[Rfam]
RNA sequence: GCACAACGACAGGGGAGCGCCGUGGGGCGCUGAGAGUGCGGGUUUCCGCAGACCCUCGAACCUGAUCCGGUUCAGACCGGCGUAGGGAGUCGGGACGUCCUCGAC
Numbered sequence: 001g002c003a004c005a006a007c008g009a010c011a012g013g014g015g016a017g018c019g020c021c022g023u024g025g026g027g028c029g030c031u032g033a034g035a036g037u038g039c040g041g042g043u044u045u046c047c048g049c050a051g052a053c054c055c056u057c058g059a060a061c062c063u064g065a066u067c068c069g070g071u072u073c074a075g076a077c078c079g080g081c082g083u084a085g086g087g088a089g090u091c092g093g094g095a096c097g098u099c100c101u102c103g104a105c
Stems, first nucleotide, its partner, number of pairs: 007092004011056004017030005037050005061086004067080004
Rfam assigns this 105-nucleotide RNA sequence from Kineococcus radiotolerans to the family "TPP riboswitch aptamer (THI element)". Taxonomically the source falls in Kineococcus radiotolerans (Bacteria, Bacillati, Actinomycetota, Kineosporiales). Gene Ontology term of the family: thiamine pyrophosphate binding.